This 80-nucleotide RNA from Alligator sinensis belongs to the Rfam family "Mammalian CPEB3 ribozyme". The base pairs follow the family's consensus structure, which is taken from published work.
RNA sequence: AGAGGUCACAAGUUUGCGAACAUAGCAGAAGUGCUCACAGCGCAGCUCUGUCAGAUUCCAACAAAUCUGUGAAUUCUGCU
Numbered sequence: 001a002g003a004g005g006u007c008a009c010a011a012g013u014u015u016g017c018g019a020a021c022a023u024a025g026c027a028g029a030a031g032u033g034c035u036c037a038c039a040g041c042g043c044a045g046c047u048c049u050g051u052c053a054g055a056u057u058c059c060a061a062c063a064a065a066u067c068u069g070u071g072a073a074u075u076c077u078g079c080u
Base pairs, nucleotide, nucleotide: 016048018046024080025079026078027077028076029075030074031043032042033041052069053068054067055066056065057064